Record summary: c-di-GMP-I riboswitch aptamer: a 113-nucleotide RNA sequence from Vibrio ishigakensis. Pairs were carried over by alignment from the consensus structure, which is taken from published work. It scores 56 bits against the family's covariance model.

[Rfam]
RNA sequence: AUAAAAACCCGCCAAACUCGUCGUGAGGCGAGGACGGAAAGCCACGGGUCUUGAUUCUAUUUCUCUCAAUAUGUCAGGGAGUUAUUAAGCAUUAAGAUAGCCGGGUUGCGAAC
Dot-bracket structure: ...........((...((((((....))))))...))..((((.((((((.....(..................................)....)))..)))))))......